[Rfam]
RNA sequence: GUUCGUCUUCAGGGGCAGGGUGAAAUUCCCGACCGGCGGUGAUAGUCCGUGAACCGUGCAUGUGCACGGCCGACUUGGUGGAAAUCCGAGACCGAUAGUAUAGUCUAGAUAAACGAAGAUGGGG
Numbered sequence: 001g002u003u004c005g006u007c008u009u010c011a012g013g014g015g016c017a018g019g020g021u022g023a024a025a026u027u028c029c030c031g032a033c034c035g036g037c038g039g040u041g042a043u044a045g046u047c048c049g050u051g052a053a054c055c056g057u058g059c060a061u062g063u064g065c066a067c068g069g070c071c072g073a074c075u076u077g078g079u080g081g082a083a084a085u086c087c088g089a090g091a092c093c094g095a096u097a098g099u100a101u102a103g104u105c106u107a108g109a110u111a112a113a114c115g116a117a118g119a120u121g122g123g124g
Base pairs, nucleotide, nucleotide: 003122004121005120006119007118008117009116010115018030019029020028032104033103034094035093036050037049038048039047045092046091054069055068074090075089076088077087078086096107097106098105
Dot-bracket structure: ..((((((((.......(((.......))).[[((((((.....[[))))...((............))....(((((.......)))))]])).(((....]]))).......))))))))..
A member of the RNA family "FMN riboswitch aptamer (RFN element)" from Lacticaseibacillus camelliae, 124 nucleotides long. Taxonomically the source falls in Lacticaseibacillus camelliae (Bacteria, Bacillati, Bacilli, Lacticaseibacillus). A search with the family's covariance model found it, with a score of 97 bits. Pairs were carried over by alignment from the consensus structure, which is taken from published work.